RNA sequence: AGGAUUCUUAGCUCUUAGAAAGUUGUCUAGAAGGUUUCUCAUAAAGAGAAGCCCCC
Number, nucleotide and partner (000 for none) at each position: 001a000002g000003g000004a000005u000006u000007c000008u000009u000010a000011g000012c000013u000014c000015u000016u000017a000018g000019a000020a000021a000022g000023u000024u000025g000026u000027c000028u000029a000030g000031a000032a000033g053034g052035u051036u050037u049038c048039u047040c046041a000042u000043a000044a000045a000046g040047a039048g038049a037050a036051g035052c034053c033054c000055c000056c000